[Rfam]
RNA sequence: UAAGUUAAUCAGACAAUCGCUGCUAAUUAUAAAAACAUCAAUAAUUAGGAGAGGAAAGUCCGGGCUCCUUUGGAUCAAAGUACCAGAUAACGCCUGGGAAGUGUAAACUUACGACUAGUGCAACAGAAAAAAAACCGCUUAAUUUUUAAAACUUAUAUUUUAUAUAUAAAAAUAUUAAGUAAGGGUGAAAAGGUGUGGUAAGAGCAUACCGUAUUAUUGGUAACAAUAAUAGACAAUGUAAACUCUACUUGGAGCAAAGUUAAAUAAUAGUUUUUUUAAUGCAUGGAUCCGUGCUAAACUUGGGUAAACUGCUUGAACUAAUAAGUGAUUAUUAGUCUAGAUAAAUGAUUGUCUAAUACAGAACCCGGCUUAUAGAUUAACUUAUGAC
Numbered sequence: 001u002a003a004g005u006u007a008a009u010c011a012g013a014c015a016a017u018c019g020c021u022g023c024u025a026a027u028u029a030u031a032a033a034a035a036c037a038u039c040a041a042u043a044a045u046u047a048g049g050a051g052a053g054g055a056a057a058g059u060c061c062g063g064g065c066u067c068c069u070u071u072g073g074a075u076c077a078a079a080g081u082a083c084c085a086g087a088u089a090a091c092g093c094c095u096g097g098g099a100a101g102u103g104u105a106a107a108c109u110u111a112c113g114a115c116u117a118g119u120g121c122a123a124c125a126g127a128a129a130a131a132a133a134a135c136c137g138c139u140u141a142a143u144u145u146u147u148a149a150a151a152c153u154u155a156u157a158u159u160u161u162a163u164a165u166a167u168a169a170a171a172a173u174a175u176u177a178a179g180u181a182a183g184g185g186u187g188a189a190a191a192g193g194u195g196u197g198g199u200a201a202g203a204g205c206a207u208a209c210c211g212u213a214u215u216a217u218u219g220g221u222a223a224c225a226a227u228a229a230u231a232g233a234c235a236a237u238g239u240a241a242a243c244u245c246u247a248c249u250u251g252g253a254g255c256a257a258a259g260u261u262a263a264a265u266a267a268u269a270g271u272u273u274u275u276u277u278a279a280u281g282c283a284u285g286g287a288u289c290c291g292u293g294c295u296a297a298a299c300u301u302g303g304g305u306a307a308a309c310u311g312c313u314u315g316a317a318c319u320a321a322u323a324a325g326u327g328a329u330u331a332u333u334a335g336u337c338u339a340g341a342u343a344a345a346u347g348a349u350u351g352u353c354u355a356a357u358a359c360a361g362a363a364c365c366c367g368g369c370u371u372a373u374a375g376a377u378u379a380a381c382u383u384a385u386g387a388c
Base pairs, nucleotide, nucleotide: 001384002383003382004381005380006379007378008377009376010375011373012353013352014351015350016349017348018347020051021050023048024047025046026045027044028043029042030041056371057370058369060368061367062366063365064364065254066253067252068251073289074288075287076286078250079249080248081247082246083097084096085095086094098112099110100109101108102107113245114244118243119242120239121238122237135184136183137180138179139178140177141176142175143174145172146171147170192210193209194208195207196206197205211234212231213230214229215228216227217226218225219224258310259309260308261307269300270299271298272297273296281294282293283292284291285290317336318335319334320333321332322331323330324329
Rfam assigns this 388-nucleotide RNA from Buchnera aphidicola to the family "Bacterial RNase P class A". Lineage of the source: Bacteria > Pseudomonadati > Enterobacterales > Erwiniaceae > Buchnera aphidicola. The match comes from Rfam's covariance-model search (279 bits). The family's RNA type in Rfam is ribozyme.